[Rfam]
RNA: Small Cajal body specific RNA 16
RNA sequence: ACGGUCUGGGGAAAGGCUCCUGUGUUGUUGAGCCUGCCAAGUUGUGGGUGCAGCAUGGUACCAGGCAGCCCAACCCUGACCUAAAGUAAAUUCCCGGAAGAAGUCUUUCCUGGGUUUUGAAUUUGCAGUAACAGGUGUGAGCAUUCUAGCAGCAGUUUGAUGAUCAUGUAUGAUACUGCAAACAGGA
Numbered sequence: 001a002c003g004g005u006c007u008g009g010g011g012a013a014a015g016g017c018u019c020c021u022g023u024g025u026u027g028u029u030g031a032g033c034c035u036g037c038c039a040a041g042u043u044g045u046g047g048g049u050g051c052a053g054c055a056u057g058g059u060a061c062c063a064g065g066c067a068g069c070c071c072a073a074c075c076c077u078g079a080c081c082u083a084a085a086g087u088a089a090a091u092u093c094c095c096g097g098a099a100g101a102a103g104u105c106u107u108u109c110c111u112g113g114g115u116u117u118u119g120a121a122u123u124u125g126c127a128g129u130a131a132c133a134g135g136u137g138u139g140a141g142c143a144u145u146c147u148a149g150c151a152g153c154a155g156u157u158u159g160a161u162g163a164u165c166a167u168g169u170a171u172g173a174u175a176c177u178g179c180a181a182a183c184a185g186g187a
Stems, first nucleotide, its partner, number of pairs: 003081004008076003015070004019065004024061002026055005032049003093114003096110005122182009132172002138166003142162004148157003